Rfam assigns this 91-nucleotide sequence from Rousettus aegyptiacus to the family "mir-1284 microRNA precursor family". NCBI's taxonomy places the organism under Eukaryota, Deuterostomia, Tetrapoda, Chiroptera, Rousettus.

RNA sequence: CAAAGUAGUCUAACGUUUUCUACACAGACCCUGGCUUUUCUUAAAUUUUAUAUAUGGGAAAGCCUGUGUUUGUAUUGGACCUUCUGGUUUC
Numbered sequence: 001c002a003a004a005g006u007a008g009u010c011u012a013a014c015g016u017u018u019u020c021u022a023c024a025c026a027g028a029c030c031c032u033g034g035c036u037u038u039u040c041u042u043a044a045a046u047u048u049u050a051u052a053u054a055u056g057g058g059a060a061a062g063c064c065u066g067u068g069u070u071u072g073u074a075u076u077g078g079a080c081c082u083u084c085u086g087g088u089u090u091c
Base pairs, nucleotide, nucleotide: 002090003089004088006086007085008084015081018079019078020077022075024073025072026071027070028069029068033064034063035062036061037060038059039058040057